[Rfam]
RNA sequence: ACAGUACAAACUGAGCAGGCGAUGAACCGAUAGGUUUGUGGGGCUGGGCCGGUGACGGCAACAGAUUGACUCGUAUCACAUCUGUGGGACAGUU
Numbered sequence: 001a002c003a004g005u006a007c008a009a010a011c012u013g014a015g016c017a018g019g020c021g022a023u024g025a026a027c028c029g030a031u032a033g034g035u036u037u038g039u040g041g042g043g044c045u046g047g048g049c050c051g052g053u054g055a056c057g058g059c060a061a062c063a064g065a066u067u068g069a070c071u072c073g074u075a076u077c078a079c080a081u082c083u084g085u086g087g088g089a090c091a092g093u094u
Base pairs, nucleotide, nucleotide: 010093011092012091013090016088018045019044020043022039023038024037025036026035027034048059049058050057051056061085062084063083064082065081066080
RNA: NiCo (Nickel/Cobalt) riboswitch aptamer
Organism: Caproiciproducens sp. NJN-50